[Rfam]
RNA sequence: CAUUGUGGUGGUUUUCUGCCUGGCGGAUCUGUGACAGUGUCAGAGCGGCCACAACCUACCACAAAGAGUAUAAAGGAGAAGGACAGUCAUGAAAACUUUUACAGAACUUUUAGUUUUCAGUUAUUCUUCCAGCUCCUACAAGG
Numbered sequence: 001c002a003u004u005g006u007g008g009u010g011g012u013u014u015u016c017u018g019c020c021u022g023g024c025g026g027a028u029c030u031g032u033g034a035c036a037g038u039g040u041c042a043g044a045g046c047g048g049c050c051a052c053a054a055c056c057u058a059c060c061a062c063a064a065a066g067a068g069u070a071u072a073a074a075g076g077a078g079a080a081g082g083a084c085a086g087u088c089a090u091g092a093a094a095a096c097u098u099u100u101a102c103a104g105a106a107c108u109u110u111u112a113g114u115u116u117u118c119a120g121u122u123a124u125u126c127u128u129c130c131a132g133c134u135c136c137u138a139c140a141a142g143g
Stems, first nucleotide, its partner, number of pairs: 005062007022050003026046001028044004075136004081088002103127004
The family of this 143-nucleotide RNA sequence from Chelydra serpentina is "Small nucleolar RNA SNORA12". The family has 23 seed sequences and 571 matches in Rfam 15.1. Lineage of the source: Eukaryota > Tetrapoda > Sauropsida > Testudinata > Chelydra. It is annotated as an H/ACA-box small nucleolar RNA.